[Rfam]
RNA sequence: UAACCGCUGGCGGGACAAGGCUGCCCGUGAAUGUUG
Numbered sequence: 001u002a003a004c005c006g007c008u009g010g011c012g013g014g015a016c017a018a019g020g021c022u023g024c025c026c027g028u029g030a031a032u033g034u035u036g
Stems, first nucleotide, its partner, number of pairs: 001036004008031001010028004
Rfam assigns this 36-nucleotide RNA sequence to the family "L19-Flavobacteria ribosomal protein leader". The family's consensus secondary structure is taken from published work.